[Rfam]
RNA sequence: CUAGAUAUGGAGACAUGGUCCCCAACACCAUCGCUGGCAAGAUCUUUGGUUCUAUCUGUUCCCUGAGCGGUGUGCUGGUGAUCGCUCUCCCAGUUCCUGUCAUUGUCUCCAAC
Numbered sequence: 001c002u003a004g005a006u007a008u009g010g011a012g013a014c015a016u017g018g019u020c021c022c023c024a025a026c027a028c029c030a031u032c033g034c035u036g037g038c039a040a041g042a043u044c045u046u047u048g049g050u051u052c053u054a055u056c057u058g059u060u061c062c063c064u065g066a067g068c069g070g071u072g073u074g075c076u077g078g079u080g081a082u083c084g085c086u087c088u089c090c091c092a093g094u095u096c097c098u099g100u101c102a103u104u105g106u107c108u109c110c111a112a113c
Stems, first nucleotide, its partner, number of pairs: 002112001004109001007106004012101004017096002020093001036076004048062002
Rfam assigns this 113-nucleotide RNA from Scleropages formosus to the family "Potassium channel RNA editing signal".
The match comes from Rfam's covariance-model search (95 bits).
By type it is a cis-regulatory element.
Rfam's curators write: This family represents a group of sequences related to the human potassium channel Kv1.1 hairpin element which directs the efficient modification of an adenosine to inosine by an adenosine deaminase acting on RNA (ADAR). The ADAR modification causes an isoleucine/valine recoding event which lies in the ion-conducting pore of the potassium channel. It is thought that this editing event targets the process of fast inactivation and allows a more rapid recovery from inactivation at negative potentials.